RNA sequence: GGUUUCCAUUGGUGCAAAUCCAAUCAUUUGAAUUUUGAAUUGAAGAUGAAAAAAUUCCUCAUUGGUAACAAAUGGUUAUCCAUUAAGCGAGGAAAAUCCUAUU
Numbered sequence: 001g002g003u004u005u006c007c008a009u010u011g012g013u014g015c016a017a018a019u020c021c022a023a024u025c026a027u028u029u030g031a032a033u034u035u036u037g038a039a040u041u042g043a044a045g046a047u048g049a050a051a052a053a054a055u056u057c058c059u060c061a062u063u064g065g066u067a068a069c070a071a072a073u074g075g076u077u078a079u080c081c082a083u084u085a086a087g088c089g090a091g092g093a094a095a096a097u098c099c100u101a102u103u
Stems, first nucleotide, its partner, number of pairs: 009023004057092004061083002064080006
RNA: Plastid-rps12 3UTR RNA
Organism: Lythrum salicaria